RNA sequence: CGUCUCCUCCAUGUCUCCACAUGGAUUAAGCCCGCCCACUGAGGCGGGUUUUUUUUC
Numbered sequence: 001c002g003u004c005u006c007c008u009c010c011a012u013g014u015c016u017c018c019a020c021a022u023g024g025a026u027u028a029a030g031c032c033c034g035c036c037c038a039c040u041g042a043g044g045c046g047g048g049u050u051u052u053u054u055u056u057c
Base pairs, nucleotide, nucleotide: 008025009024010023011022012021013020014019029050030049031048032047033046034045035044036043
A member of the RNA family "Betaproteobacteria toxic small RNA" from Paraburkholderia phytofirmans, 57 nucleotides long. About the family: Overexpression in amino aid rich medium attenuates growth, suggesting role in repressing amino acid intake and metabolism. The literature on the family includes a 2012 paper in Genome Res by Kimelman et al., "A vast collection of microbial genes that are toxic to bacteria".